The family of this 86-nucleotide RNA sequence from Erpetoichthys calabaricus is "mir-184 microRNA precursor family".
Nucleotides: 086
Base pairs, nucleotide, nucleotide: 012075013074014073015072016071017070018069019068020067022065023064024063025062026061027060030057031056
Number, partner (000 for none) and nucleotide at each position: 001000u002000c003000u004000u005000u006000c007000a008000c009000a010000u011000c012075u013074c014073c015072u016071u017070a018069u019068c020067a021000c022065u023064u024063u025062u026061c027060c028000a029000g030057c031056c032000c033000a034000g035000c036000u037000a038000u039000g040000a041000u042000a043000g044000c045000u046000c047000a048000a049000a050000u051000c052000c053000g054000u055000u056031g057030g058000a059000c060027g061026g062025a063024g064023a065022a066000c067020u068019g069018a070017u071016a072015a073014g074013g075012g076000u077000a078000u079000g080000u081000g082000a083000c084000u085000g086000a

Its family is annotated with RISC complex and gene silencing by miRNA in the Gene Ontology.